Shown here is a 127-nucleotide RNA sequence from Priestia taiwanensis, a member of the family "SAM riboswitch aptamer (S box leader)". Rfam describes the family as follows. The SAM riboswitch is found upstream of a number of genes which code for proteins involved in methionine or cysteine biosynthesis in Gram-positive bacteria. The match comes from Rfam's covariance-model search (68 bits).

[Rfam]
RNA sequence: CUCUUAUCCUGAGCUGGUGGAGGGACGCAGACCCUAUGAAACCCAGCAACCGUCUUGUCUAUUAGAAUUGCAGACAAUGAAAAGGUGCUAAACUGAUGCAAGGCUAUAUUGCCUUGGACGAUAAGAG
Numbered sequence: 001c002u003c004u005u006a007u008c009c010u011g012a013g014c015u016g017g018u019g020g021a022g023g024g025a026c027g028c029a030g031a032c033c034c035u036a037u038g039a040a041a042c043c044c045a046g047c048a049a050c051c052g053u054c055u056u057g058u059c060u061a062u063u064a065g066a067a068u069u070g071c072a073g074a075c076a077a078u079g080a081a082a083a084g085g086u087g088c089u090a091a092a093c094u095g096a097u098g099c100a101a102g103g104c105u106a107u108a109u110u111g112c113c114u115u116g117g118a119c120g121a122u123a124a125g126a127g
Base pairs, nucleotide, nucleotide: 001127002126003125004124005123006122007121008120013044016043017042018041022034023033024032028098029097031094045089046088047087048086050085051084053080054079099116100115101114102113103112104111